A member of the RNA family "KatA 5' UTR thermometer" from Yersinia kristensenii, 154 nucleotides long. Pairs were carried over by alignment from the consensus structure. Its family is annotated with regulation of translation and response to temperature stimulus in the Gene Ontology. The sequence is in the family's curated seed alignment.

RNA sequence: GAGAUCAAGGAAUAACUCGCUGAUGUUGUUUAAGUUAUUAUUUUACCAAUCAGGCUUUUGGCGAAAUGUAAUGCUUUAAAACACCCGACAAGCAAUCAAUUCAACAGCAAUACUGGAGAAAAUGAUGAGCAAAAAGAAAGGAUUAACCACUGCA
Numbered sequence: 001g002a003g004a005u006c007a008a009g010g011a012a013u014a015a016c017u018c019g020c021u022g023a024u025g026u027u028g029u030u031u032a033a034g035u036u037a038u039u040a041u042u043u044u045a046c047c048a049a050u051c052a053g054g055c056u057u058u059u060g061g062c063g064a065a066a067u068g069u070a071a072u073g074c075u076u077u078a079a080a081a082c083a084c085c086c087g088a089c090a091a092g093c094a095a096u097c098a099a100u101u102c103a104a105c106a107g108c109a110a111u112a113c114u115g116g117a118g119a120a121a122a123u124g125a126u127g128a129g130c131a132a133a134a135a136g137a138a139a140g141g142a143u144u145a146a147c148c149a150c151u152g153c154a
Stems, first nucleotide, its partner, number of pairs: 010102004021092001024090005029080004039068004044063001046061004107130002110126002114122001140148002